[Rfam]
The family of this 84-nucleotide RNA sequence from Esox lucius is "mir-135 microRNA precursor family". A reference for the family is Lagos-Quintana et al. (2002), "Identification of tissue-specific microRNAs from mouse", Curr Biol. Gene Ontology terms of the family: RISC complex and gene silencing by miRNA.
RNA sequence: UUGCUGUUGUGUCUUAUGGCUUUUUAUUCCUACGUGAUGGUAGAUGUGUUCAUGUAGGGAUAGAAGCCACUAAACACACAGUGA
Numbered sequence: 001u002u003g004c005u006g007u008u009g010u011g012u013c014u015u016a017u018g019g020c021u022u023u024u025u026a027u028u029c030c031u032a033c034g035u036g037a038u039g040g041u042a043g044a045u046g047u048g049u050u051c052a053u054g055u056a057g058g059g060a061u062a063g064a065a066g067c068c069a070c071u072a073a074a075c076a077c078a079c080a081g082u083g084a
Base pairs, nucleotide, nucleotide: 002083003082004081005080006079007078009077010076011075012074014072017069018068019067020066021065022064023063026061027060028059029058030057031056032055033054034053035052036051037050